RNA sequence: UAGUGUUAAGGGCAAACCUGUCUAAAGACAGGGACGCAAAGCCAUAGGAUCUAAGGUGCUUAAGCAGCACUAUGAUAGCCUGGUUGCCGCA
Number, nucleotide and partner (000 for none) at each position: 001u000002a000003g000004u000005g000006u000007u000008a000009a000010g000011g000012g037013c036014a000015a000016a000017c032018c031019u030020g029021u028022c027023u000024a000025a000026a000027g022028a021029c020030a019031g018032g017033g000034a000035c000036g013037c012038a000039a000040a085041g084042c083043c082044a000045u000046a081047g080048g079049a076050u075051c074052u000053a000054a000055g000056g070057u069058g068059c067060u000061u000062a000063a000064g000065c000066a000067g059068c058069a057070c056071u000072a000073u000074g051075a050076u049077a000078g000079c048080c047081u046082g043083g042084u041085u040086g000087c000088c000089g000090c000091a000

The family of this 91-nucleotide RNA from Desulfosporosinus metallidurans is "c-di-GMP-I riboswitch aptamer". The family's consensus secondary structure is taken from published work.